Shown here is a 69-nucleotide RNA sequence from Nyctereutes procyonoides, a member of the family "mir-711 microRNA precursor family".
RNA sequence: CCUGAUUUUGAGUCUCUCUUCAGGGUGCUACAGGCAAAGCUGGAGACCCAGGGAGAGAUGUAAGUGAAG
Numbered sequence: 001c002c003u004g005a006u007u008u009u010g011a012g013u014c015u016c017u018c019u020u021c022a023g024g025g026u027g028c029u030a031c032a033g034g035c036a037a038a039g040c041u042g043g044a045g046a047c048c049c050a051g052g053g054a055g056a057g058a059u060g061u062a063a064g065u066g067a068a069g
Stems, first nucleotide, its partner, number of pairs: 003067001005065004012059009023049004029043001031042003
It scores 80 bits against the family's covariance model.
For this family Rfam cites "The expression profile of microRNAs in mouse embryos" (Mineno et al., Nucleic Acids Res, 2006).
Lineage of the source: Eukaryota > Opisthokonta > Carnivora > Canidae > Nyctereutes.